[Rfam]
RNA sequence: UGGUAGAAUCUAUAAAGCUCAGGAGGGAUAGCGCCACCGCAAACCAUACAUUAUUAUAGUGGCGCUGUCUAUCCUAAGUUUUGUGGUUUCUUCUU
Numbered sequence: 001u002g003g004u005a006g007a008a009u010c011u012a013u014a015a016a017g018c019u020c021a022g023g024a025g026g027g028a029u030a031g032c033g034c035c036a037c038c039g040c041a042a043a044c045c046a047u048a049c050a051u052u053a054u055u056a057u058a059g060u061g062g063c064g065c066u067g068u069c070u071a072u073c074c075u076a077a078g079u080u081u082u083g084u085g086g087u088u089u090c091u092u093c094u095u
Stems, first nucleotide, its partner, number of pairs: 010086001016080004021075004026070010
RNA: MIR390 microRNA precursor family